[Rfam]
RNA: Pyrrolysine insertion sequence mttB
RNA sequence: UAGGCGGACAGUAAAGUUCCGGAUGCGCAGGCCGCUCAUGAGAAAACCUUAACCGCUCUUUUAGCUGCACAGGGUGGAGCUAACCUUAUAUACGGUGCAG
Numbered sequence: 001u002a003g004g005c006g007g008a009c010a011g012u013a014a015a016g017u018u019c020c021g022g023a024u025g026c027g028c029a030g031g032c033c034g035c036u037c038a039u040g041a042g043a044a045a046a047c048c049u050u051a052a053c054c055g056c057u058c059u060u061u062u063a064g065c066u067g068c069a070c071a072g073g074g075u076g077g078a079g080c081u082a083a084c085c086u087u088a089u090a091u092a093c094g095g096u097g098c099a100g
Stems, first nucleotide, its partner, number of pairs: 003012001025032001034061001077098001079096002